[Rfam]
RNA sequence: UUGCUCGAGGAGCGUUGCGACAGCCCCGGACCCGCGUGUCCGCCCCGGCUGCCAGGCUCGGGCACGGCCGGCGUCACGCGCCGCCGCCUGCAACGGCGCUCACCGGUC
Number, nucleotide and partner (000 for none) at each position: 001u000002u064003g063004c062005u061006c060007g059008a058009g000010g000011a000012g000013c000014g000015u000016u000017g000018c000019g000020a000021c051022a050023g049024c048025c047026c000027c000028g000029g000030a000031c000032c000033c000034g000035c000036g000037u000038g000039u000040c000041c000042g000043c000044c000045c000046c000047g025048g024049c023050u022051g021052c000053c000054a000055g000056g000057c000058u008059c007060g006061g005062g004063c003064a002065c000066g000067g000068c000069c000070g000071g000072c000073g000074u000075c000076a000077c000078g000079c000080g000081c000082c000083g000084c000085c000086g000087c000088c000089u000090g000091c000092a000093a000094c000095g000096g000097c000098g000099c000100u000101c000102a000103c000104c000105g000106g000107u000108c000
A member of the RNA family "SAH (S-adenosyl-L-homocysteine) riboswitch aptamer" from Rhizobacter koreensis, 108 nucleotides long. The family's consensus secondary structure is taken from published work.